A member of the RNA family "U7 small nuclear RNA" from Stercorarius parasiticus, 60 nucleotides long.
RNA sequence: CAGUGAUUUCAGCUCUUUUAGUAUUUGUCCAGUAGGUUUCCUGCUUGGCGGGAAGCCUCA
Numbered sequence: 001c002a003g004u005g006a007u008u009u010c011a012g013c014u015c016u017u018u019u020a021g022u023a024u025u026u027g028u029c030c031a032g033u034a035g036g037u038u039u040c041c042u043g044c045u046u047g048g049c050g051g052g053a054a055g056c057c058u059c060a
Stems, first nucleotide, its partner, number of pairs: 035057010
It scores 64 bits against the family's covariance model. Animal histone pre-mRNAs are spliced by a different mechanism than nuclear pre-mRNAs and self-splicing introns. This processing involves the U7 snRNP, which contains only one RNA species: U7.